[Rfam]
RNA sequence: GAGCGAUGAUGAUAAGGUUUUCCUACUGACCUCUGUAACUCUGAAGGUUUUUACACUUGAUCUGAGCUCA
Numbered sequence: 001g002a003g004c005g006a007u008g009a010u011g012a013u014a015a016g017g018u019u020u021u022c023c024u025a026c027u028g029a030c031c032u033c034u035g036u037a038a039c040u041c042u043g044a045a046g047g048u049u050u051u052u053a054c055a056c057u058u059g060a061u062c063u064g065a066g067c068u069c070a
Stems, first nucleotide, its partner, number of pairs: 001069004015032005

The record is a 70-nucleotide sequence from Tupaia belangeri, which matches "Small nucleolar RNA U2-30" in Rfam. For this family Rfam cites "Guide RNAs with 5' Caps and Novel Box C/D snoRNA-like Domains for Modification of snRNAs in Metazoa" (Tycowski et al., Curr Biol, 2004). The base pairs follow the family's consensus structure, which is taken from published work. The family has 21 seed sequences and 664 matches in Rfam 15.1. Lineage of the source: Eukaryota > Craniata > Eutheria > Tupaiidae > Tupaia. Rfam classes the family as a C/D-box small nucleolar RNA.